Shown here is a 72-nucleotide RNA from Canibacter oris, a member of the family "tRNA". Taxonomically the source falls in Canibacter (Bacteria, Bacillati, Actinomycetota, Actinomycetes).
RNA sequence: GCCACCUUAGCUCAGGGGUAGAGCAGCUCCCUCGUAAAGAGCAGGUCGCGGGUUCAAAUCCCGCAGGUGGCU
Numbered sequence: 001g002c003c004a005c006c007u008u009a010g011c012u013c014a015g016g017g018g019u020a021g022a023g024c025a026g027c028u029c030c031c032u033c034g035u036a037a038a039g040a041g042c043a044g045g046u047c048g049c050g051g052g053u054u055c056a057a058a059u060c061c062c063g064c065a066g067g068u069g070g071c072u
Base pairs, nucleotide, nucleotide: 001071002070003069004068005067006066007065010024011023012022013021026042027041028040029039048064049063050062051061052060

The match comes from Rfam's covariance-model search (66 bits).